Source information:
This 68-nucleotide sequence belongs to the Rfam family "S15-Flavobacteria ribosomal protein leader". The sequence is in the family's curated seed alignment. A reference for the family is Eckert and Weinberg (2020), "Discovery of 20 novel ribosomal leader candidates in bacteria and archaea", BMC Microbiol.
[Rfam]
RNA sequence: UAUUUUUGCAUCCGAAUUAUGAUAAACAUAAUUCAUACAUAAAAAUCAUUUACAAAAAUAUUAGCAUG
Numbered sequence: 001u002a003u004u005u006u007u008g009c010a011u012c013c014g015a016a017u018u019a020u021g022a023u024a025a026a027c028a029u030a031a032u033u034c035a036u037a038c039a040u041a042a043a044a045a046u047c048a049u050u051u052a053c054a055a056a057a058a059u060a061u062u063a064g065c066a067u068g
Base pairs, nucleotide, nucleotide: 014034015033016032017031018030019029